[Rfam]
RNA sequence: AAGUUCGGGGUAAGUGCUGCACGGCCAGCUCCCUCUGAACUCCGCCAGGACCGGAAGGUAGCAACGGUAGGAGGUCGUAGCGGCGCGAUGCGGUUAGCUUACCCCGAA
Numbered sequence: 001a002a003g004u005u006c007g008g009g010g011u012a013a014g015u016g017c018u019g020c021a022c023g024g025c026c027a028g029c030u031c032c033c034u035c036u037g038a039a040c041u042c043c044g045c046c047a048g049g050a051c052c053g054g055a056a057g058g059u060a061g062c063a064a065c066g067g068u069a070g071g072a073g074g075u076c077g078u079a080g081c082g083g084c085g086c087g088a089u090g091c092g093g094u095u096a097g098c099u100u101a102c103c104c105c106g107a108a
Stems, first nucleotide, its partner, number of pairs: 008104008017093005022087002024084002

Shown here is a 108-nucleotide sequence from Cyclonatronum proteinivorum, a member of the family "Bacteroidales small SRP". Lineage of the source: Bacteria > Pseudomonadati > Balneolia > Balneolales > Cyclonatronum.